The family of this 76-nucleotide sequence from Danio rerio is "mir-193 microRNA precursor family". Lineage of the source: Eukaryota > Clupeocephala > Otomorpha > Otophysi > Danio. Rfam's curators put it in the seed alignment. For this family Rfam cites "Small RNA expression and strain specificity in the rat" (Linsen et al., BMC Genomics, 2010).
[Rfam]
RNA sequence: UUUCAGUGACGGGACUUUGGGGGCGAGAUGAGUAUUGAUCUCUAUCCAACUGGCCCGCAAAGUCCCGCUUCUGGGA
Numbered sequence: 001u002u003u004c005a006g007u008g009a010c011g012g013g014a015c016u017u018u019g020g021g022g023g024c025g026a027g028a029u030g031a032g033u034a035u036u037g038a039u040c041u042c043u044a045u046c047c048a049a050c051u052g053g054c055c056c057g058c059a060a061a062g063u064c065c066c067g068c069u070u071c072u073g074g075g076a
Base pairs, nucleotide, nucleotide: 003074004073005072006071008069010067011066012065013064015062016061017060018059019058021056022055023054024053026051027050029048030047